[Rfam]
RNA sequence: AUAAUUUGUUGAGGCAGAGGUGGGGUUUCUAUGCGGCAUGUGCCUUGCUUUUAAUAAACGCAAUGCCCUUAGAAAUCCCAAAAGUGUCCAACGAUAAUC
Numbered sequence: 001a002u003a004a005u006u007u008g009u010u011g012a013g014g015c016a017g018a019g020g021u022g023g024g025g026u027u028u029c030u031a032u033g034c035g036g037c038a039u040g041u042g043c044c045u046u047g048c049u050u051u052u053a054a055u056a057a058a059c060g061c062a063a064u065g066c067c068c069u070u071a072g073a074a075a076u077c078c079c080a081a082a083a084g085u086g087u088c089c090a091a092c093g094a095u096a097a098u099c
Stems, first nucleotide, its partner, number of pairs: 008095004014087003021080009031070001033068001035067005041062003

Background:
The family of this 99-nucleotide RNA sequence from Cotesia congregata is "mir-2788 microRNA precursor family". Rfam links the family to the GO terms RISC complex and miRNA-mediated post-transcriptional gene silencing. Pairs were carried over by alignment from the consensus structure, which was predicted with RNAalifold.